[Rfam]
RNA sequence: GCUGUAAAUCAUGAUUAAAAAUACAAUUCUGAAAGCAAUUCACAAC
Number, nucleotide and partner (000 for none) at each position: 001g000002c000003u044004g043005u042006a000007a040008a039009u038010c000011a000012u000013g000014a000015u000016u031017a030018a000019a028020a027021a000022u000023a000024c000025a000026a000027u020028u019029c000030u017031g016032a000033a000034a000035g000036c000037a000038a009039u008040u007041c000042a005043c004044a003045a000046c000

This 46-nucleotide RNA sequence from Galbibacter orientalis belongs to the Rfam family "CRISPR RNA direct repeat element". The match comes from Rfam's covariance-model search (48 bits). The family's consensus secondary structure was predicted with WAR.